[Rfam]
RNA sequence: GGCUGGUGCAAGUGCAGUGGUGUUUACAACAAAUAGAUCACUACCAGUUACAGAUUUCUUUGUUCCUUCCCUAUUCCCAUUGAUUCACUUGACUGGCCUUAA
Numbered sequence: 001g002g003c004u005g006g007u008g009c010a011a012g013u014g015c016a017g018u019g020g021u022g023u024u025u026a027c028a029a030c031a032a033a034u035a036g037a038u039c040a041c042u043a044c045c046a047g048u049u050a051c052a053g054a055u056u057u058c059u060u061u062g063u064u065c066c067u068u069c070c071c072u073a074u075u076c077c078c079a080u081u082g083a084u085u086c087a088c089u090u091g092a093c094u095g096g097c098c099u100u101a102a
Stems, first nucleotide, its partner, number of pairs: 001098007010090002014086001016081005022076001028064003032060002
The family of this 102-nucleotide RNA from Pan troglodytes is "Y RNA".
The base pairs follow the family's consensus structure, which is taken from published work.
From the family's description: Y RNAs are components of the Ro ribonucleoprotein particle (Ro RNP), in association with Ro60 and La proteins. The Y RNAs and Ro60 and La proteins are well conserved, but the function of the Ro RNP is not known. In humans the RNA component can be one of four small RNAs -- hY1, hY3, hY4 and hY5. These small RNAs are predicted to fold into a conserved secondary structure containing three stem structures. The largest of the four, hY1, contains an additional hairpin. This family includes a significant number of annotated pseudogenes and the model is expected to discriminate poorly between real and Y RNA related pseudogenes.
It scores 60 bits against the family's covariance model.
It is annotated as a non-coding RNA gene.
NCBI's taxonomy places the organism under Eukaryota, Eumetazoa, Eutheria, Euarchontoglires, Pan.
A reference for the family is Teunissen et al. (2000), "Conserved features of Y RNAs: a comparison of experimentally derived secondary structures", Nucleic Acids Res.